RNA sequence: CGCCCGCGGAGGGGACGGGGGCCGUCCGGAGACGGCGGCCCUCUGGAACCUCCCGCCCGCCCGCGGAGGCUCCCGGCGGGCCGCCGAAAGGCGGGGGUAAAAACCAGCCGGGGGCGCGGCCCCCAAGCAGGGCCUGUGAGGCCGCGGCGAGGCCCAGGUAGGGGGCUAGACCGAUACCGAACAGAAGCGGGGGUAUGCCGCGGGCG
Numbered sequence: 001c002g003c004c005c006g007c008g009g010a011g012g013g014g015a016c017g018g019g020g021g022c023c024g025u026c027c028g029g030a031g032a033c034g035g036c037g038g039c040c041c042u043c044u045g046g047a048a049c050c051u052c053c054c055g056c057c058c059g060c061c062c063g064c065g066g067a068g069g070c071u072c073c074c075g076g077c078g079g080g081c082c083g084c085c086g087a088a089a090g091g092c093g094g095g096g097g098u099a100a101a102a103a104c105c106a107g108c109c110g111g112g113g114g115c116g117c118g119g120c121c122c123c124c125a126a127g128c129a130g131g132g133c134c135u136g137u138g139a140g141g142c143c144g145c146g147g148c149g150a151g152g153c154c155c156a157g158g159u160a161g162g163g164g165g166c167u168a169g170a171c172c173g174a175u176a177c178c179g180a181a182c183a184g185a186a187g188c189g190g191g192g193g194u195a196u197g198c199c200g201c202g203g204g205c206g
Stems, first nucleotide, its partner, number of pairs: 001206009011178002018043004023037002026035003057119004069115009081094005095105002122163003130155005140148001
RNA: RNaseP truncated form
Organism: Thermoproteus tenax